The record is a 160-nucleotide RNA sequence from Streptomyces jeddahensis, which matches "c-di-AMP riboswitch aptamer (ydaO/yuaA leader)" in Rfam.
RNA sequence: AGGUCGACAUCGGUGGAUCGGCAGGAGUGGAGGACCCAGCACGGCGGGCAGCCCGGAGCACUCCGGGAGGCCCUUGGGGUGAAGCCGCACCGCGCGGCCGGGCAUCUUCGCCUGCCCGAACCCGACAGGUCAUCCUUCACAGGCGGCUGACGAAGGGCUG
Numbered sequence: 001a002g003g004u005c006g007a008c009a010u011c012g013g014u015g016g017a018u019c020g021g022c023a024g025g026a027g028u029g030g031a032g033g034a035c036c037c038a039g040c041a042c043g044g045c046g047g048g049c050a051g052c053c054c055g056g057a058g059c060a061c062u063c064c065g066g067g068a069g070g071c072c073c074u075u076g077g078g079g080u081g082a083a084g085c086c087g088c089a090c091c092g093c094g095c096g097g098c099c100g101g102g103c104a105u106c107u108u109c110g111c112c113u114g115c116c117c118g119a120a121c122c123c124g125a126c127a128g129g130u131c132a133u134c135c136u137u138c139a140c141a142g143g144c145g146g147c148u149g150a151c152g153a154a155g156g157g158c159u160g
Stems, first nucleotide, its partner, number of pairs: 004025002027140006037076002077123003085097004100117004
Dot-bracket structure: ...((..................)).((((((....((....................................))(((.....((((.....))))..((((..........))))...)))...........))))))....................